[Rfam]
RNA sequence: UGACCACUUCACCAGGAAGUUAAGGCCAUACGGACAGCCGGGUCAAACGCCGA
Dot-bracket structure: ((((((((((.....)))))....................)))))........
A member of the RNA family "Streptococcus sRNA SpF59 (ldcC RNA)" from Paenibacillus sp. PAMC 26794, 53 nucleotides long.
On this family, see Mann et al., PLoS Pathog 2012: "Control of virulence by small RNAs in Streptococcus pneumoniae".
By type it is a small RNA.